Rfam assigns this 182-nucleotide RNA from Anopheles sinensis to the family "U12 minor spliceosomal RNA". The match comes from Rfam's covariance-model search (113 bits). The organism belongs to Myzorhynchus, within Eukaryota.

RNA sequence: GUGCCUUAAACUAAUGAGUAAGGAAAAUUACGAGCCUUGGUGACGCUUGGCUCUGCCUACACGCAACGGGAUACCAGCGAUGGUGUUCUCGGUAGGCGCAAUUUUUGCCGAGGCACAGGUCGUCCCUUCGAGCUUGUCCUGCCUACUUUUGCAGGAUGCUUGGGAGAAUUGCGAUCUGCCUC
Numbered sequence: 001g002u003g004c005c006u007u008a009a010a011c012u013a014a015u016g017a018g019u020a021a022g023g024a025a026a027a028u029u030a031c032g033a034g035c036c037u038u039g040g041u042g043a044c045g046c047u048u049g050g051c052u053c054u055g056c057c058u059a060c061a062c063g064c065a066a067c068g069g070g071a072u073a074c075c076a077g078c079g080a081u082g083g084u085g086u087u088c089u090c091g092g093u094a095g096g097c098g099c100a101a102u103u104u105u106u107g108c109c110g111a112g113g114c115a116c117a118g119g120u121c122g123u124c125c126c127u128u129c130g131a132g133c134u135u136g137u138c139c140u141g142c143c144u145a146c147u148u149u150u151g152c153a154g155g156a157u158g159c160u161u162g163g164g165a166g167a168a169u170u171g172c173g174a175u176c177u178g179c180c181u182c
Base pairs, nucleotide, nucleotide: 004023005022006021007020008019032053033052034051035050036049039046056096057095058094059093060092110182111181112180113179114178117177118176119175120174121173122172123171126166127165129162130161131160132159133158138155139154140153141152142151

The literature on the family includes a 1997 paper in Trends Biochem Sci by Tarn and Steitz, "Pre-mRNA splicing: the discovery of a new spliceosome doubles the challenge". It is annotated as a spliceosomal small nuclear RNA.